[Rfam]
The record is a 130-nucleotide RNA sequence from Scleropages formosus, which matches "Small nucleolar RNA SNORA44" in Rfam. A search with the family's covariance model found it, with a score of 65 bits. Rfam links the family to the GO terms RNA processing and nucleolus. Taxonomically the source falls in Scleropages (Eukaryota, Vertebrata, Actinopterygii, Osteoglossocephala). For this family Rfam cites "RNomics: an experimental approach that identifies 201 candidates for novel, small, non-messenger RNAs in mouse" (Huttenhofer et al., EMBO J, 2001). Clan: SNORA44 clan. The family's RNA type in Rfam is H/ACA-box small nucleolar RNA. Rfam describes the family as follows. ACA44 is a member of the H/ACA class of snoRNA that guide the sites of modification of uridines to pseudouridines.
RNA sequence: GCGCAUGUUUUCCAAGGAUCGGGGCCCCGUGCGUGGCCUUCGGUUCUCCAACUGCAUGCCAGAGAAACGGGCAGACUUUGACUGGGUGGGCUGCACGUGCCCUUUGCAGUCACUCUACUGUCCUACAUGU
Numbered sequence: 001g002c003g004c005a006u007g008u009u010u011u012c013c014a015a016g017g018a019u020c021g022g023g024g025c026c027c028c029g030u031g032c033g034u035g036g037c038c039u040u041c042g043g044u045u046c047u048c049c050a051a052c053u054g055c056a057u058g059c060c061a062g063a064g065a066a067a068c069g070g071g072c073a074g075a076c077u078u079u080g081a082c083u084g085g086g087u088g089g090g091c092u093g094c095a096c097g098u099g100c101c102c103u104u105u106g107c108a109g110u111c112a113c114u115c116u117a118c119u120g121u122c123c124u125a126c127a128u129g130u
Stems, first nucleotide, its partner, number of pairs: 012042001017038001019036003023032001069123006084110001088102003